[Rfam]
RNA: drz-agam-1 ribozyme
Nucleotides: 080
Base pairs, nucleotide, nucleotide: 013080014079015078017076018075019074020073022034023033024032045066046065047064048063050061051060053059
Number, partner (000 for none) and nucleotide at each position: 001000c002000a003000a004000c005000u006000a007000c008000c009000a010000a011000a012000c013080c014079c015078u016000a017076u018075u019074u020073c021000c022034a023033u024032c025000u026000c027000c028000a029000c030000g031000u032024g033023a034022u035000g036000a037000u038000c039000g040000c041000u042000g043000g044000g045066a046065g047064u048063u049000c050061u051060u052000u053059u054000u055000u056000a057000a058000u059053g060051a061050a062000a063048a064047a065046c066045u067000g068000c069000a070000a071000a072000u073020g074019a075018a076017g077000a078015a079014g080013g